[Rfam]
RNA sequence: GUUAUCGGACUCGCCUCGAUCCACAUGUGUUAGAGUAGAUAAGGGUGAAAUUUAGUUUAAAUUUCACUCCAAUCUACCUCAACACAUGUGGAUUGAUGUAAAACCGACU
Numbered sequence: 001g002u003u004a005u006c007g008g009a010c011u012c013g014c015c016u017c018g019a020u021c022c023a024c025a026u027g028u029g030u031u032a033g034a035g036u037a038g039a040u041a042a043g044g045g046u047g048a049a050a051u052u053u054a055g056u057u058u059a060a061a062u063u064u065c066a067c068u069c070c071a072a073u074c075u076a077c078c079u080c081a082a083c084a085c086a087u088g089u090g091g092a093u094u095g096a097u098g099u100a101a102a103a104c105c106g107a108c109u
Base pairs, nucleotide, nucleotide: 005107006106007105008104011101013099014098016096017095018094019093020092021091022090023089024088025087026086027085028084029083030082031081035077036076037075038074039073040072043069045067046066047065
The record is a 109-nucleotide RNA from Sorghum bicolor, which matches "MIR5565 microRNA precursor family" in Rfam. Rfam 15.1 lists 3,346 matches to the family in 5 species. A search with the family's covariance model found it, with a score of 86 bits. The base pairs follow the family's consensus structure, which was predicted with RNAalifold.